[Rfam]
RNA sequence: GCCUCCAAGGAUGAUAAAAAAUAUAACUUUCGUUCUUCCGAGUAAUCCAUGCGGAAAAUAUAUGGAGACCUGAACUGAGGAGGC
Numbered sequence: 001g002c003c004u005c006c007a008a009g010g011a012u013g014a015u016a017a018a019a020a021a022u023a024u025a026a027c028u029u030u031c032g033u034u035c036u037u038c039c040g041a042g043u044a045a046u047c048c049a050u051g052c053g054g055a056a057a058a059u060a061u062a063u064g065g066a067g068a069c070c071u072g073a074a075c076u077g078a079g080g081a082g083g084c
Stems, first nucleotide, its partner, number of pairs: 003082004